[Rfam]
RNA sequence: GCGUUUACUCGGGUUUCGCGAUGUGCGAACAGUCCUCUGCACUGUGUUCGUUGUCGUCGAAACCUGCCUUAAACGC
Numbered sequence: 001g002c003g004u005u006u007a008c009u010c011g012g013g014u015u016u017c018g019c020g021a022u023g024u025g026c027g028a029a030c031a032g033u034c035c036u037c038u039g040c041a042c043u044g045u046g047u048u049c050g051u052u053g054u055c056g057u058c059g060a061a062a063c064c065u066g067c068c069u070u071a072a073a074c075g076c
Stems, first nucleotide, its partner, number of pairs: 001076004010066009027049005